[Rfam]
RNA: U5 spliceosomal RNA
Organism: Rhinopithecus roxellana
RNA sequence: AUACUCCAGUUACUCUUCAGAUCAUAUCUAUCUUUCACCUUUUGCUAAAAAUUUCCAUGAAGGGGAACCAUUCUGAGUCUUAACCCAAUUUUUUGAGGCCCUGUAUCUGCAGGGCU
Numbered sequence: 001a002u003a004c005u006c007c008a009g010u011u012a013c014u015c016u017u018c019a020g021a022u023c024a025u026a027u028c029u030a031u032c033u034u035u036c037a038c039c040u041u042u043u044g045c046u047a048a049a050a051a052u053u054u055c056c057a058u059g060a061a062g063g064g065g066a067a068c069c070a071u072u073c074u075g076a077g078u079c080u081u082a083a084c085c086c087a088a089u090u091u092u093u094u095g096a097g098g099c100c101c102u103g104u105a106u107c108u109g110c111a112g113g114g115c116u
Stems, first nucleotide, its partner, number of pairs: 003078004009068003013064007030052002033049003096116001098115006